[Rfam]
RNA: Ribosomal protein L10 leader
Organism: Enterococcus lacertideformus
RNA sequence: GUUAAUAAUUAACUUGUACCGAAGACAGUAGGUGGUAUCUACCUUAAUUUCCUACCGAGGACGUUUAUUGAAUCCAUUCAAUAGUCCCUCUAUGUCUACGGUGGCAUAGAGUUUUUUGUUGUGAAUC
Numbered sequence: 001g002u003u004a005a006u007a008a009u010u011a012a013c014u015u016g017u018a019c020c021g022a023a024g025a026c027a028g029u030a031g032g033u034g035g036u037a038u039c040u041a042c043c044u045u046a047a048u049u050u051c052c053u054a055c056c057g058a059g060g061a062c063g064u065u066u067a068u069u070g071a072a073u074c075c076a077u078u079c080a081a082u083a084g085u086c087c088c089u090c091u092a093u094g095u096c097u098a099c100g101g102u103g104g105c106a107u108a109g110a111g112u113u114u115u116u117u118g119u120u121g122u123g124a125a126u127c
Stems, first nucleotide, its partner, number of pairs: 028055005034043003088111009